[Rfam]
Shown here is a 77-nucleotide sequence from Streptomyces zagrosensis, a member of the family "L31-Actinobacteria ribosomal protein leader".
A search with the family's covariance model found it, with a score of 36 bits.
Rfam classes the family as a cis-regulatory leader.
The family is grouped with related families in Rfam's "Ribosomal Protein L31 Leader clan".
RNA sequence: UCGGCCCCGGUUCACGUCAGGCAAGCAUUCCCUUCCAGCCCGCCCAUCGGGCGGAAGGGGCCCAACGACCCGGUGCC
Numbered sequence: 001u002c003g004g005c006c007c008c009g010g011u012u013c014a015c016g017u018c019a020g021g022c023a024a025g026c027a028u029u030c031c032c033u034u035c036c037a038g039c040c041c042g043c044c045c046a047u048c049g050g051g052c053g054g055a056a057g058g059g060g061c062c063c064a065a066c067g068a069c070c071c072g073g074u075g076c077c
Stems, first nucleotide, its partner, number of pairs: 003077003007073004015067003020062003